[Rfam]
RNA sequence: GGUGAUACUUAAGCGCCCGGACUCUUUUAAGAGUUGACGAGGAGAGGGUUUAUCGAAUAGUCGGCGGGUGCCCUCCGGGUUGUCAUACCCGUUAACGGCAGACAAAACUGUAGGUAACUACAGCCUAAAACUGACCAGGUGACAUU
Number, nucleotide and partner (000 for none) at each position: 001g000002g000003u000004g000005a000006u000007a000008c000009u000010u000011a000012a000013g000014c000015g000016c000017c000018c000019g000020g035021a034022c033023u032024c031025u030026u000027u000028u000029a000030a025031g024032a023033g022034u021035u020036g000037a000038c000039g000040a000041g000042g000043a000044g075045a074046g073047g072048g071049u000050u000051u000052a000053u064054c063055g062056a061057a000058u000059a000060g000061u056062c055063g054064g053065c000066g000067g000068g000069u000070g000071c048072c047073c046074u045075c044076c091077g090078g089079g088080u087081u000082g000083u000084c000085a000086u000087a080088c079089c078090c077091g076092u000093u000094a000095a000096c000097g135098g000099c133100a132101g131102a000103c000104a000105a000106a000107a000108c123109u122110g121111u120112a119113g118114g000115u000116a000117a000118c113119u112120a111121c110122a109123g108124c000125c000126u000127a000128a000129a000130a000131c101132u100133g099134a000135c097136c000137a000138g000139g000140u000141g000142a000143c000144a000145u000146u000
RNA: glmS glucosamine-6-phosphate activated ribozyme aptamer